[Rfam]
RNA sequence: GGGGGCGUCUGGGUUCCUGGUGGGCCCCACGGUCUUCAACACCGAUGAGGGCGGCUCGGCCGUCCUGGCGGGUUCGAUUCCCGUCCGCCUCC
Number, nucleotide and partner (000 for none) at each position: 001g092002g091003g090004g089005g088006c087007g086008u000009c000010u000011g000012g027013g026014u000015u024016c023017c022018u000019g000020g000021u000022g017023g016024g015025c000026c013027c012028c000029a000030c044031g043032g042033u041034c000035u000036u000037c000038a000039a000040c000041a033042c032043c031044g030045a000046u000047g000048a066049g065050g064051g063052c062053g000054g000055c000056u000057c000058g000059g000060c000061c000062g052063u051064c050065c049066u048067g000068g000069c083070g082071g081072g080073u000074u000075c000076g000077a000078u000079u000080c072081c071082c070083g069084u000085c000086c007087g006088c005089c004090u003091c002092c001
Shown here is a 92-nucleotide RNA from Euzebya pacifica, a member of the family "Selenocysteine transfer RNA". It scores 65 bits against the family's covariance model. The family's consensus secondary structure is taken from published work.